[Rfam]
RNA sequence: UAUGCAGGGGUGUAUCGGCACAGUGCUGUAAUCAGUGCACUUUGAUCCGAAGUUCCCUGCAAGAUCCAAUCUCGGGGAAGAUGGGCAGUUGUAUUUCAUGCAACCUGUUGAAAUUUGCAAUUAUCAUCUUCCCCAAAUUU
Numbered sequence: 001u002a003u004g005c006a007g008g009g010g011u012g013u014a015u016c017g018g019c020a021c022a023g024u025g026c027u028g029u030a031a032u033c034a035g036u037g038c039a040c041u042u043u044g045a046u047c048c049g050a051a052g053u054u055c056c057c058u059g060c061a062a063g064a065u066c067c068a069a070u071c072u073c074g075g076g077g078a079a080g081a082u083g084g085g086c087a088g089u090u091g092u093a094u095u096u097c098a099u100g101c102a103a104c105c106u107g108u109u110g111a112a113a114u115u116u117g118c119a120a121u122u123a124u125c126a127u128c129u130u131c132c133c134c135a136a137a138u139u140u
Stems, first nucleotide, its partner, number of pairs: 004060006010040006074134011088121004